The family of this 74-nucleotide RNA from Tyrannus savana is "mir-216 microRNA precursor family". The family has 57 seed sequences and 1,667 matches in Rfam 15.1. Gene Ontology terms of the family: RISC complex and miRNA-mediated post-transcriptional gene silencing. The base pairs follow the family's consensus structure, which was predicted with WAR. The family is grouped with related families in Rfam's "mir-216 clan". The source organism's lineage runs through Eukaryota, Craniata, Vertebrata, Tyrannidae and Tyrannus.
RNA sequence: AAUUGGCUUAAUCUCAGCUGGCAACUGUGAGCACUUCAGGAGCCCUCAUGGUUGUAGCUGGGAUUGUGCUAAAC
Numbered sequence: 001a002a003u004u005g006g007c008u009u010a011a012u013c014u015c016a017g018c019u020g021g022c023a024a025c026u027g028u029g030a031g032c033a034c035u036u037c038a039g040g041a042g043c044c045c046u047c048a049u050g051g052u053u054g055u056a057g058c059u060g061g062g063a064u065u066g067u068g069c070u071a072a073a074c
Stems, first nucleotide, its partner, number of pairs: 003072005009066009021055002023052001026050006